[Rfam]
RNA: Purine riboswitch aptamer
Organism: Hypnocyclicus thermotrophus
RNA sequence: CUAUAAAAAAAUAAAAACACUCAUAUAAUUCUGUAAUAUGGUCAGAAGUCUCUACAGGUUACCGUAAAUAACCUACUAUGAGUGAAAUAUAUUAAGCU
Numbered sequence: 001c002u003a004u005a006a007a008a009a010a011a012u013a014a015a016a017a018c019a020c021u022c023a024u025a026u027a028a029u030u031c032u033g034u035a036a037u038a039u040g041g042u043c044a045g046a047a048g049u050c051u052c053u054a055c056a057g058g059u060u061a062c063c064g065u066a067a068a069u070a071a072c073c074u075a076c077u078a079u080g081a082g083u084g085a086a087a088u089a090u091a092u093u094a095a096g097c098u
Base pairs, nucleotide, nucleotide: 018084019083020082021081022080023079024078025077030046031045032044033043056074057073058072059071060070061069